[Rfam]
RNA sequence: CACUCUGAAAAGCAGUCCCCGGAUCUCCGAGGGGCUCGCCCACGGUGAAAGCCGCCCUCGCUCCGGCGUGGCGGUGAAACUCUCAGGCACGAUGACAGAGGG
Numbered sequence: 001c002a003c004u005c006u007g008a009a010a011a012g013c014a015g016u017c018c019c020c021g022g023a024u025c026u027c028c029g030a031g032g033g034g035c036u037c038g039c040c041c042a043c044g045g046u047g048a049a050a051g052c053c054g055c056c057c058u059c060g061c062u063c064c065g066g067c068g069u070g071g072c073g074g075u076g077a078a079a080c081u082c083u084c085a086g087g088c089a090c091g092a093u094g095a096c097a098g099a100g101g102g
Base pairs, nucleotide, nucleotide: 001102003100004099005098006097007096014036015035016034017033018032019031038088039087040086042083045082047080051075052074053073054072055071056070